RNA: Small nucleolar RNA Z105
Organism: Eragrostis curvula
RNA sequence: UUGGCAAGAUGAGGAACGAACAUUAUGUUGUCUGAUGUACUUGAUGAGAAAUACCUCCUACUCAUUCUGA
Number, nucleotide and partner (000 for none) at each position: 001u000002u000003g000004g000005c000006a065007a000008g063009a062010u000011g000012a000013g000014g000015a000016a000017c000018g000019a000020a000021c000022a000023u000024u000025a000026u000027g000028u049029u048030g000031u000032c043033u000034g000035a000036u000037g000038u000039a000040c000041u000042u000043g032044a000045u000046g000047a000048g029049a028050a000051a000052u000053a000054c000055c000056u000057c000058c000059u000060a000061c000062u009063c008064a000065u006066u000067c000068u000069g000070a000